Overview:
MIR8024 microRNA precursor family: an 86-nucleotide RNA from Solanum tuberosum. Lineage of the source: Eukaryota > Magnoliopsida > Mesangiospermae > Pentapetalae > Solanum. The family's consensus secondary structure was predicted with RNAalifold.

RNA sequence: UUGAAGAAUUUGAAGACUUCAACUUGCAAACAUGGAGUAUUUGAAGACGUUAACUUGCAGGCUUGAAGAAUUUGAAAACUUCAACU
Numbered sequence: 001u002u003g004a005a006g007a008a009u010u011u012g013a014a015g016a017c018u019u020c021a022a023c024u025u026g027c028a029a030a031c032a033u034g035g036a037g038u039a040u041u042u043g044a045a046g047a048c049g050u051u052a053a054c055u056u057g058c059a060g061g062c063u064u065g066a067a068g069a070a071u072u073u074g075a076a077a078a079c080u081u082c083a084a085c086u
Stems, first nucleotide, its partner, number of pairs: 001084006009076006017068005025059004033052003037048001